[Rfam]
RNA: Lysine riboswitch aptamer
RNA sequence: GACAUAAAUAGAGGAGCAAGUAAACGUUGUAGUUUUUAGGUGUUAAGGAGAAGAACCUUCAAGACUAAAAGCGAAGGAUUUACCUGCCGAAAGGUUGUAUUUGUUCUUGGGUAUAACCUUGGGGAUAAGAGGCACACUUUUAUCCUUGCCGUGAACAAGCUUCAUGGAGAGCUAUUUAUGUG
Numbered sequence: 001g002a003c004a005u006a007a008a009u010a011g012a013g014g015a016g017c018a019a020g021u022a023a024a025c026g027u028u029g030u031a032g033u034u035u036u037u038a039g040g041u042g043u044u045a046a047g048g049a050g051a052a053g054a055a056c057c058u059u060c061a062a063g064a065c066u067a068a069a070a071g072c073g074a075a076g077g078a079u080u081u082a083c084c085u086g087c088c089g090a091a092a093g094g095u096u097g098u099a100u101u102u103g104u105u106c107u108u109g110g111g112u113a114u115a116a117c118c119u120u121g122g123g124g125a126u127a128a129g130a131g132g133c134a135c136a137c138u139u140u141u142a143u144c145c146u147u148g149c150c151g152u153g154a155a156c157a158a159g160c161u162u163c164a165u166g167g168a169g170a171g172c173u174a175u176u177u178a179u180g181u182g
Base pairs, nucleotide, nucleotide: 006177007176008175009174010173011172016087017086018085020083021082022081023080024079032072033071034070035069036068037067038066039065091120092119093118094117095116096115097114098113099112100111101110102109121147122146123145124144125143126142127141128140129139130138131137149167150166151165152164153163154162155161